trpB ncRNA motif: a 108-nucleotide sequence from Vagococcus acidifermentans. trpB ncRNA motif was reported as a strong cis regulatory motif candidate, with potential to be a cis regulatory riboswitch type, it have been identified in Firmicutes and Fusobacteria. It scores 69 bits against the family's covariance model.

RNA sequence: UUCAUAGAUACAACUUUUAGAGAUGAUUCUAAAUGUGUAUCUAUGCUGGUAUUUUUAACAUGUCAUCACACCACAUAGAUAACUCAAUCUAUGUGGUUUUUGUUUUGA
Numbered sequence: 001u002u003c004a005u006a007g008a009u010a011c012a013a014c015u016u017u018u019a020g021a022g023a024u025g026a027u028u029c030u031a032a033a034u035g036u037g038u039a040u041c042u043a044u045g046c047u048g049g050u051a052u053u054u055u056u057a058a059c060a061u062g063u064c065a066u067c068a069c070a071c072c073a074c075a076u077a078g079a080u081a082a083c084u085c086a087a088u089c090u091a092u093g094u095g096g097u098u099u100u101u102g103u104u105u106u107g108a
Stems, first nucleotide, its partner, number of pairs: 003045009015035001016033005070097011

Notes:
On this family, see Narunsky et al., Nucleic Acids Res 2024: "The discovery of novel noncoding RNAs in 50 bacterial genomes". Pairs were carried over by alignment from the consensus structure, which is taken from published work. The source organism's lineage runs through Bacteria, Bacillati, Bacilli, Lactobacillales and Vagococcus.